[Rfam]
RNA sequence: AUCAGCGGGGAAAGAAGACCCUGUUGAGCUUGACUCUAGUCUAACUUUGUGAAAUGGCACGUGGGGUAUAGCCUAGGUGGGAGAGAAAUCGAGCCUGUAAAACCACUACCCACGUAGUCAUUUUGCUUAUUUCGUGAAGAAAAAACUGGUGAGAACCAGUUCUAAAAUUAAGGACAUUUAUUGUCUGAUUUUUGCGAAAAGACAUGGUUAGGGGGGGAGUUUGUCUGGGGCGGAAUGCCUGUUAAACCAUAACGCAGGCGUCCUAAGUGUAGCUCAGUGAGAACGGAAAUCUCACGUAGAACAAAAGGGUAAAAGCUACAUUGAUUUUGAUUUUCAGUAUGAAUACAAACCGCGAAAGCGUGGCCUAUCGAUCCUUUAACUUUACAAGUUUUAAGCUAGAGGUGUCAGAAAAGUUACCACAGGGAUAACUGGCUUGUGGCAGCCAAGAGUUCAUAUCGACGUUGCUUUUUGAUCCUUCGAUGUCGGCUCUUCCUAUCAUUGUGAAGCAGAAUUCACAACGUGUCGGAUUGUUCACCCGCUAAUAGGGAACGUGAGCUGGGUUUAGACCGUCGUGAGACAGGUUAGUUUUACCCUACUGAU
Dot-bracket structure: (((((..(((.((......((((.(((((((.((((...(((((((..(((((((((((((((((..........(((((..((....))............))))).))))))).))))))))))...(((((.....((((....((......))..............(((((.....)))))..))))..)))))......)))))))....))))..((((.....))).)((((((...........))))))..((....((((((((.((((((.......))))))...))((......))....))))))....(((..((((.......))))..))).(((....))).))..........(((((..((((.......)))).))))).........)))))..))))))........(.(.(.((((((...((.......))...))))))...)).)..........(((((((((((..((.((((((......))))))...)).(((.(.....).))).....)))))..)..)))).).....(((((((....))).))))....))..))).)))))
Numbered sequence: 001a002u003c004a005g006c007g008g009g010g011a012a013a014g015a016a017g018a019c020c021c022u023g024u025u026g027a028g029c030u031u032g033a034c035u036c037u038a039g040u041c042u043a044a045c046u047u048u049g050u051g052a053a054a055u056g057g058c059a060c061g062u063g064g065g066g067u068a069u070a071g072c073c074u075a076g077g078u079g080g081g082a083g084a085g086a087a088a089u090c091g092a093g094c095c096u097g098u099a100a101a102a103c104c105a106c107u108a109c110c111c112a113c114g115u116a117g118u119c120a121u122u123u124u125g126c127u128u129a130u131u132u133c134g135u136g137a138a139g140a141a142a143a144a145a146c147u148g149g150u151g152a153g154a155a156c157c158a159g160u161u162c163u164a165a166a167a168u169u170a171a172g173g174a175c176a177u178u179u180a181u182u183g184u185c186u187g188a189u190u191u192u193u194g195c196g197a198a199a200a201g202a203c204a205u206g207g208u209u210a211g212g213g214g215g216g217g218a219g220u221u222u223g224u225c226u227g228g229g230g231c232g233g234a235a236u237g238c239c240u241g242u243u244a245a246a247c248c249a250u251a252a253c254g255c256a257g258g259c260g261u262c263c264u265a266a267g268u269g270u271a272g273c274u275c276a277g278u279g280a281g282a283a284c285g286g287a288a289a290u291c292u293c294a295c296g297u298a299g300a301a302c303a304a305a306a307g308g309g310u311a312a313a314a315g316c317u318a319c320a321u322u323g324a325u326u327u328u329g330a331u332u333u334u335c336a337g338u339a340u341g342a343a344u345a346c347a348a349a350c351c352g353c354g355a356a357a358g359c360g361u362g363g364c365c366u367a368u369c370g371a372u373c374c375u376u377u378a379a380c381u382u383u384a385c386a387a388g389u390u391u392u393a394a395g396c397u398a399g400a401g402g403u404g405u406c407a408g409a410a411a412a413g414u415u416a417c418c419a420c421a422g423g424g425a426u427a428a429c430u431g432g433c434u435u436g437u438g439g440c441a442g443c444c445a446a447g448a449g450u451u452c453a454u455a456u457c458g459a460c461g462u463u464g465c466u467u468u469u470u471g472a473u474c475c476u477u478c479g480a481u482g483u484c485g486g487c488u489c490u491u492c493c494u495a496u497c498a499u500u501g502u503g504a505a506g507c508a509g510a511a512u513u514c515a516c517a518a519c520g521u522g523u524c525g526g527a528u529u530g531u532u533c534a535c536c537c538g539c540u541a542a543u544a545g546g547g548a549a550c551g552u553g554a555g556c557u558g559g560g561u562u563u564a565g566a567c568c569g570u571c572g573u574g575a576g577a578c579a580g581g582u583u584a585g586u587u588u589u590a591c592c593c594u595a596c597u598g599a600u
Stems, first nucleotide, its partner, number of pairs: 001600005008594003012589002020423004025419002027415005033220004040212007049126010059115007076107005083090002130199005140192004148157002172186005223236001224234003237259006262363002268320006274300002277295006301310002325349003330344004351360003374401005381395004432473001434471001436470001438466006447457002484559001485557004489551001490548005497522002500517006524538003528534001565583004569578003